Record summary:
A member of the RNA family "Trypanosomatid snoRNA TB9Cs1H3" from Leishmania infantum, 65 nucleotides long. On this family, see Liang et al., RNA 2005: "A genome-wide analysis of C/D and H/ACA-like small nucleolar RNAs in Trypanosoma brucei reveals a trypanosome-specific pattern of rRNA modification". Rfam's curators put it in the seed alignment. Taxonomically the source falls in Leishmania infantum (Eukaryota, Metakinetoplastina, Trypanosomatidae, Leishmania).
RNA sequence: UGCCAACGCACUAUUGCUCCCGCUGCUGCGUGUCGAUGAGCAGCGGGUUCCUGAGGUGCGUGAGA
Numbered sequence: 001u002g003c004c005a006a007c008g009c010a011c012u013a014u015u016g017c018u019c020c021c022g023c024u025g026c027u028g029c030g031u032g033u034c035g036a037u038g039a040g041c042a043g044c045g046g047g048u049u050c051c052u053g054a055g056g057u058g059c060g061u062g063a064g065a
Stems, first nucleotide, its partner, number of pairs: 006061007019047004